U11 spliceosomal RNA: a 136-nucleotide RNA sequence from Astyanax mexicanus. The family is grouped with related families in Rfam's "U1 clan". The match comes from Rfam's covariance-model search (111 bits).

RNA sequence: AAAAAGGGCAUCUGUCGUGUUUGACACAGUAGGAGAAGAGAUUCUCUGAUCCUGCUGCGGAAUCGUUAUCAAGAGAUUUCGGAUGCACAAUUUUUAUAAAUCGGAGCUGCUAUUGACCGUUUGUCUUGGCGCUCCA
Numbered sequence: 001a002a003a004a005a006g007g008g009c010a011u012c013u014g015u016c017g018u019g020u021u022u023g024a025c026a027c028a029g030u031a032g033g034a035g036a037a038g039a040g041a042u043u044c045u046c047u048g049a050u051c052c053u054g055c056u057g058c059g060g061a062a063u064c065g066u067u068a069u070c071a072a073g074a075g076a077u078u079u080c081g082g083a084u085g086c087a088c089a090a091u092u093u094u095u096a097u098a099a100a101u102c103g104g105a106g107c108u109g110c111u112a113u114u115g116a117c118c119g120u121u122u123g124u125c126u127u128g129g130c131g132c133u134c135c136a
Base pairs, nucleotide, nucleotide: 008086009085010084011083012082013026014025015024016023017022027057028056029055030054031053032052033051034050035047037045038044058081059080060079061078062077063076064075104134105133106132107131109130110129111128112127115125116124117123